[Rfam]
RNA sequence: AUUGAAGACAUCGUUGAGUGCAGCCUUGAUGAACCCAAAACCCCAAAACCCCAAAACGAACGUUCUAAUUCAAAAGAGGUUAUAAAGCUUUCAACAGCGAUGCACUUAAUGAUGUCUUUG
Numbered sequence: 001a002u003u004g005a006a007g008a009c010a011u012c013g014u015u016g017a018g019u020g021c022a023g024c025c026u027u028g029a030u031g032a033a034c035c036c037a038a039a040a041c042c043c044c045a046a047a048a049c050c051c052c053a054a055a056a057c058g059a060a061c062g063u064u065c066u067a068a069u070u071c072a073a074a075a076g077a078g079g080u081u082a083u084a085a086a087g088c089u090u091u092c093a094a095c096a097g098c099g100a101u102g103c104a105c106u107u108a109a110u111g112a113u114g115u116c117u118u119u120g
Base pairs, nucleotide, nucleotide: 006117007116008115009114010113011112013110014109015108016107017106018105019104020103021102022101024099026097027096028095030093031092032091

A member of the RNA family "MIR397 microRNA precursor family" from Dioscorea zingiberensis, 120 nucleotides long. The family has 7 seed sequences and 496 matches in Rfam 15.1. For this family Rfam cites "Rice MicroRNA effector complexes and targets" (Wu et al., Plant Cell, 2009).